[Rfam]
The family of this 70-nucleotide sequence is "ftsZ-DE RNA". Rfam's curators put it in the seed alignment.

RNA sequence: GGAUGUGCAGGAGCGCAUCCACCACAACACAAGGGGGUCGCCCGGGUCUCCCUGCCCGGGCGACUCUUCC
Numbered sequence: 001g002g003a004u005g006u007g008c009a010g011g012a013g014c015g016c017a018u019c020c021a022c023c024a025c026a027a028c029a030c031a032a033g034g035g036g037g038u039c040g041c042c043c044g045g046g047u048c049u050c051c052c053u054g055c056c057c058g059g060g061c062g063a064c065u066c067u068u069c070c
Stems, first nucleotide, its partner, number of pairs: 001020008033068015